[Rfam]
RNA sequence: GCGGAAGGCCGGACGGCCGCUUUGGGGGCGUAAGCCCCCCGAGAGGAAAGUCCGGACUCGCCAAGGCAUCGGUGCCGGGUAACGCCCGGGCAGGGCAACCUGACGGAAAGCGCCACAGAAAACAGACCGCCCGUCAUGCCCGAGGGGUUCCAAGGGACGCCAUGGCGGGGCAGGGGGAAACGGGGGGGGAAGAGCCCACCGGGGGGCUGGCAACAGCGCCCGCAUGGCAAGCCCCACCGGGAGCAAUGCCAAAUAGGGACCCCGCGUGCGUUCGCGGACAGGGCCGCCUUGGCCCGAGGGGUCCGGGUUGGCAGCUAGAGCCGUGCAGCAAUGUACGGCGCAGAGGAAUGGUCGUCUGAGGGCGGGUUUCGGCCCGUCCGACAACAGAAUCCGGCUUACAGGCCUUCCGCGCAU
Numbered sequence: 001g002c003g004g005a006a007g008g009c010c011g012g013a014c015g016g017c018c019g020c021u022u023u024g025g026g027g028g029c030g031u032a033a034g035c036c037c038c039c040c041g042a043g044a045g046g047a048a049a050g051u052c053c054g055g056a057c058u059c060g061c062c063a064a065g066g067c068a069u070c071g072g073u074g075c076c077g078g079g080u081a082a083c084g085c086c087c088g089g090g091c092a093g094g095g096c097a098a099c100c101u102g103a104c105g106g107a108a109a110g111c112g113c114c115a116c117a118g119a120a121a122a123c124a125g126a127c128c129g130c131c132c133g134u135c136a137u138g139c140c141c142g143a144g145g146g147g148u149u150c151c152a153a154g155g156g157a158c159g160c161c162a163u164g165g166c167g168g169g170g171c172a173g174g175g176g177g178a179a180a181c182g183g184g185g186g187g188g189g190a191a192g193a194g195c196c197c198a199c200c201g202g203g204g205g206g207c208u209g210g211c212a213a214c215a216g217c218g219c220c221c222g223c224a225u226g227g228c229a230a231g232c233c234c235c236a237c238c239g240g241g242a243g244c245a246a247u248g249c250c251a252a253a254u255a256g257g258g259a260c261c262c263c264g265c266g267u268g269c270g271u272u273c274g275c276g277g278a279c280a281g282g283g284c285c286g287c288c289u290u291g292g293c294c295c296g297a298g299g300g301g302u303c304c305g306g307g308u309u310g311g312c313a314g315c316u317a318g319a320g321c322c323g324u325g326c327a328g329c330a331a332u333g334u335a336c337g338g339c340g341c342a343g344a345g346g347a348a349u350g351g352u353c354g355u356c357u358g359a360g361g362g363c364g365g366g367u368u369u370c371g372g373c374c375c376g377u378c379c380g381a382c383a384a385c386a387g388a389a390u391c392c393g394g395c396u397u398a399c400a401g402g403c404c405u406u407c408c409g410c411g412c413a414u
Stems, first nucleotide, its partner, number of pairs: 001410010011399001012356007020043003024039005048397003052394005057243003061240001065290002070239005075089005090104001091102004105234002110232002112228003127174002130169008182200002185197003201223001202221003206217004247313004257304006281295005320339008
This 414-nucleotide sequence from Rhodobacteraceae bacterium PD-2 belongs to the Rfam family "Bacterial RNase P class A".
It scores 265 bits against the family's covariance model.
The family's consensus secondary structure is taken from published work.
Taxonomically the source falls in Paracoccaceae (Bacteria, Pseudomonadati, Pseudomonadota, Alphaproteobacteria).